[Rfam]
RNA sequence: GAGAAGAGACAGGACAAAGGCUGGGAAAAGGCAGAGCAAGAAUGUAGCUAUUGACAGAAAUGGUGAAGUGAGAAUGAGAGGAGAGAGAUAUCUGUUGUGGCUACGCUCAUGCACUGCCUCUUCCCUGGCUCUCUCUCUUUCUUGUUC
Numbered sequence: 001g002a003g004a005a006g007a008g009a010c011a012g013g014a015c016a017a018a019g020g021c022u023g024g025g026a027a028a029a030g031g032c033a034g035a036g037c038a039a040g041a042a043u044g045u046a047g048c049u050a051u052u053g054a055c056a057g058a059a060a061u062g063g064u065g066a067a068g069u070g071a072g073a074a075u076g077a078g079a080g081g082a083g084a085g086a087g088a089u090a091u092c093u094g095u096u097g098u099g100g101c102u103a104c105g106c107u108c109a110u111g112c113a114c115u116g117c118c119u120c121u122u123c124c125c126u127g128g129c130u131c132u133c134u135c136u137c138u139u140u141c142u143u144g145u146u147c
Stems, first nucleotide, its partner, number of pairs: 018130002021127001023125005029119006036112003040108002045103007